[Rfam]
RNA sequence: UUUCGUGGCCCUUCUUGGGCGUUUCCUCCCUAGACUUGGGCCGCUGUCUCAGCGGCCUUAUUUUUUACUCGGC
Numbered sequence: 001u002u003u004c005g006u007g008g009c010c011c012u013u014c015u016u017g018g019g020c021g022u023u024u025c026c027u028c029c030c031u032a033g034a035c036u037u038g039g040g041c042c043g044c045u046g047u048c049u050c051a052g053c054g055g056c057c058u059u060a061u062u063u064u065u066u067a068c069u070c071g072g073c
Stems, first nucleotide, its partner, number of pairs: 008020004038058009

This 73-nucleotide RNA sequence from Agaricicola taiwanensis belongs to the Rfam family "Makes More Granules Regulator RNA (mmgR)".
Its Rfam clan is "suhB sRNA clan".
For this family Rfam cites "Expression of the Sinorhizobium meliloti small RNA gene mmgR is controlled by the nitrogen source" (Ceizel Borella et al., FEMS Microbiol Lett, 2016).
Pairs were carried over by alignment from the consensus structure.
By type it is a small RNA.
SuhB later renamed mmgR (makes more granules regulator) was a putative non-coding RNA found multiple times in the Agrobacterium tumefaciens genome and related alpha-proteobacteria. Other non-coding RNAs uncovered in the same analysis include: speF, ybhL, metA, and serC.Several studies inSinorhizobium meliloti showed that suhB element is indeed a non-coding RNA:firstly it was detected on Northern blot and called Sm8RNA, secondly in an RNAseq study referred to as SmelC689.The mutant phenotype's (strain lacking the small RNA) cytoplasm contains higher content of polyhydroxybutyrate (PBH)storage granules than wild type strain. The sRNA is required to limit the PBH intracellular accumulation when the nitrogen-fixing Sinorhizobium meliloti is under condition of surplus carbon in relation to nitrogen. It has been renamed to mmgR. Further study confirmed that mmgR fine-tunes the regulation of PBH storage.Northern blot confirmed the expression of the sRNA in other rhizobia species.